[Rfam]
RNA sequence: UGCUAGAAAACAGAUGUGAUAUAUCCAAGCAUGUAUCUGAUUGCUUUUUUGUGGAAAUAUGACUAUUUCUGAGUAUUCUGGAG
Numbered sequence: 001u002g003c004u005a006g007a008a009a010a011c012a013g014a015u016g017u018g019a020u021a022u023a024u025c026c027a028a029g030c031a032u033g034u035a036u037c038u039g040a041u042u043g044c045u046u047u048u049u050u051g052u053g054g055a056a057a058u059a060u061g062a063c064u065a066u067u068u069c070u071g072a073g074u075a076u077u078c079u080g081g082a083g
Base pairs, nucleotide, nucleotide: 001083003081004080005079006078008076010074011073
RNA: Small nucleolar RNA SNORD121A